[Rfam]
RNA sequence: GGAUGUGAGAGAGAUCUGGCACCCCAUUGAUCGCUAGGGCUGAUCUGGCUGGCUAGGCUGAUGUCCCCUUCCUCCCUCACCACUCCAUGUGCGUCCCUCCCGAAGCUGUGCGCUCGGUCGAAGAGGAUGGCUGUCCCCGAUAGAGAAGCACCAAUCUCCGGUCAAGGGUAUAUGAGUAGCUGCACUCCCCUGCUAGAACCUCCAAACAAGAUUCAAGUAGUCAAGGGUAGUCAAGCUCCAAGUCUUCAAGCACAUCCAAAUGUGGUACUGCAUGGGGCAGUCUGCCUUCCUUU
Numbered sequence: 001g002g003a004u005g006u007g008a009g010a011g012a013g014a015u016c017u018g019g020c021a022c023c024c025c026a027u028u029g030a031u032c033g034c035u036a037g038g039g040c041u042g043a044u045c046u047g048g049c050u051g052g053c054u055a056g057g058c059u060g061a062u063g064u065c066c067c068c069u070u071c072c073u074c075c076c077u078c079a080c081c082a083c084u085c086c087a088u089g090u091g092c093g094u095c096c097c098u099c100c101c102g103a104a105g106c107u108g109u110g111c112g113c114u115c116g117g118u119c120g121a122a123g124a125g126g127a128u129g130g131c132u133g134u135c136c137c138c139g140a141u142a143g144a145g146a147a148g149c150a151c152c153a154a155u156c157u158c159c160g161g162u163c164a165a166g167g168g169u170a171u172a173u174g175a176g177u178a179g180c181u182g183c184a185c186u187c188c189c190c191u192g193c194u195a196g197a198a199c200c201u202c203c204a205a206a207c208a209a210g211a212u213u214c215a216a217g218u219a220g221u222c223a224a225g226g227g228u229a230g231u232c233a234a235g236c237u238c239c240a241a242g243u244c245u246u247c248a249a250g251c252a253c254a255u256c257c258a259a260a261u262g263u264g265g266u267a268c269u270g271c272a273u274g275g276g277g278c279a280g281u282c283u284g285c286c287u288u289c290c291u292u293u
Base pairs, nucleotide, nucleotide: 001086002085003084005080006079007078008077009076011074013071014070018068019067020056022052023051024048025047026046029045030044031043032042033040034039095148097145098144099143100117101116102115103114105113106112118140119139120138125136126135127134179236180235181234185230186229188227189226190225191224200220201219203217258293259292260291262288264286265285266284267281268280269279270278271277
RNA: 7SK RNA
Organism: Xenopus tropicalis